[Rfam]
RNA: Fluoride riboswitch aptamer (crcB RNA motif)
Organism: Niabella ginsenosidivorans
RNA sequence: UUAUAAACAGGAAAUGGUGUCUUCCUGAACCAACCGUUCACGCCUUUUGCGGGAUCUGAUGGCGCCUACAAAUUU
Numbered sequence: 001u002u003a004u005a006a007a008c009a010g011g012a013a014a015u016g017g018u019g020u021c022u023u024c025c026u027g028a029a030c031c032a033a034c035c036g037u038u039c040a041c042g043c044c045u046u047u048u049g050c051g052g053g054a055u056c057u058g059a060u061g062g063c064g065c066c067u068a069c070a071a072a073u074u075u
Base pairs, nucleotide, nucleotide: 010025011024012023013022016066017065018064019063020062021061036056038054039053